FMN riboswitch aptamer (RFN element): a 115-nucleotide RNA sequence from Desulfosporosinus youngiae. The source organism's lineage runs through Bacteria, Bacillota, Clostridia, Desulfitobacteriaceae and Desulfosporosinus youngiae.

[Rfam]
RNA sequence: AUACUCCUCUGGGGUUGGGUGAAAUUCCCUACCGGCGGUAAAGCCCGCGAGCCUUUUGGCAGAUCUGGUGAAAUUCCAGGGCCGACAGUAAAAGUCUGGAUGAGAAGAGGAACAG
Numbered sequence: 001a002u003a004c005u006c007c008u009c010u011g012g013g014g015u016u017g018g019g020u021g022a023a024a025u026u027c028c029c030u031a032c033c034g035g036c037g038g039u040a041a042a043g044c045c046c047g048c049g050a051g052c053c054u055u056u057u058g059g060c061a062g063a064u065c066u067g068g069u070g071a072a073a074u075u076c077c078a079g080g081g082c083c084g085a086c087a088g089u090a091a092a093a094g095u096c097u098g099g100a101u102g103a104g105a106a107g108a109g110g111a112a113c114a115g
Stems, first nucleotide, its partner, number of pairs: 005111006017029003031095002033084002035048004043082002051060003064080005086098003